Shown here is a 35-nucleotide RNA sequence from a Betaproteobacteria bacterium, a member of the family "CRISPR RNA direct repeat element".
NCBI's taxonomy places the organism under Bacteria, Pseudomonadati, Pseudomonadota, Betaproteobacteria.
The family has 6 seed sequences and 1,291 matches in Rfam 15.1.
Gene Ontology term of the family: defense response.
RNA sequence: GAAUCCGAGGCAGAGUGCCUCGGCCUCAUUGAAGC
Numbered sequence: 001g002a003a004u005c006c007g008a009g010g011c012a013g014a015g016u017g018c019c020u021c022g023g024c025c026u027c028a029u030u031g032a033a034g035c
Stems, first nucleotide, its partner, number of pairs: 005023007